RNA sequence: GCGGGGUUGAUUCGUCCCCUGCGGAGCGAGCGGCGGGCAUAAGGCAAGAGAAAGCCGGGCAGAAAUGGCCGGAUGGCGAAGC
Numbered sequence: 001g002c003g004g005g006g007u008u009g010a011u012u013c014g015u016c017c018c019c020u021g022c023g024g025a026g027c028g029a030g031c032g033g034c035g036g037g038c039a040u041a042a043g044g045c046a047a048g049a050g051a052a053a054g055c056c057g058g059g060c061a062g063a064a065a066u067g068g069c070c071g072g073a074u075g076g077c078g079a080a081g082c
Stems, first nucleotide, its partner, number of pairs: 001022006055072004060067002
RNA: RAGATH-28 RNA